Background
Shown here is a 46-nucleotide RNA from Viviania marifolia, a member of the family "Plastid-rpl16 group II-D1 intron". The literature on the family includes a 2023 paper in Plant Commun by Richter et al., "Retrograde signaling in plants: A critical review focusing on the GUN pathway and beyond". The sequence is in the family's curated seed alignment. Plastid-rpl16 is a non-coding RNA (ncRNA) recognised in plastids. It was recognised in and intronic region of a ribosome rpl16 gene.
RNA sequence: AAGCCUAGAGCCAAUAAAGACUAAGAAGAUUGACUCAAGAACAAAU
Numbered sequence: 001a002a003g004c005c006u007a008g009a010g011c012c013a014a015u016a017a018a019g020a021c022u023a024a025g026a027a028g029a030u031u032g033a034c035u036c037a038a039g040a041a042c043a044a045a046u
Base pairs, nucleotide, nucleotide: 005039006038008036009035010034012032013031014030015029